[Rfam]
A member of the RNA family "Streptomyces-metH RNA" from Streptomyces bungoensis, 132 nucleotides long.
RNA sequence: CGCGUCCGCCUCGUGGACGCCGGUGCCCAUCCAAGCCCACACCCGGUUACCCUGGCGCCGUGCCCCUUGCCCGGCCGCGUCCGGGCAAGCCGCAUAGCCGACAGCCGUCGCAUCCCAGGGAGCACCUUCAUG
Numbered sequence: 001c002g003c004g005u006c007c008g009c010c011u012c013g014u015g016g017a018c019g020c021c022g023g024u025g026c027c028c029a030u031c032c033a034a035g036c037c038c039a040c041a042c043c044c045g046g047u048u049a050c051c052c053u054g055g056c057g058c059c060g061u062g063c064c065c066c067u068u069g070c071c072c073g074g075c076c077g078c079g080u081c082c083g084g085g086c087a088a089g090c091c092g093c094a095u096a097g098c099c100g101a102c103a104g105c106c107g108u109c110g111c112a113u114c115c116c117a118g119g120g121a122g123c124a125c126c127u128u129c130a131u132g
Stems, first nucleotide, its partner, number of pairs: 061094003066089009097111002100109003
By type it is a small RNA.